A member of the RNA family "skipping-rope RNA", 82 nucleotides long.

RNA sequence: CUGAAUAGAGGAUAGGAGUUAUAGCACUAUCACACCUUUAUGGUAGAAAGAGACGUUGGGGGAGCUGUCCCAACCUAUUCAC
Numbered sequence: 001c002u003g004a005a006u007a008g009a010g011g012a013u014a015g016g017a018g019u020u021a022u023a024g025c026a027c028u029a030u031c032a033c034a035c036c037u038u039u040a041u042g043g044u045a046g047a048a049a050g051a052g053a054c055g056u057u058g059g060g061g062g063a064g065c066u067g068u069c070c071c072a073a074c075c076u077a078u079u080c081a082c
Stems, first nucleotide, its partner, number of pairs: 002081007011031005021068005033050001034044003055074005

Rfam classes the family as a small RNA.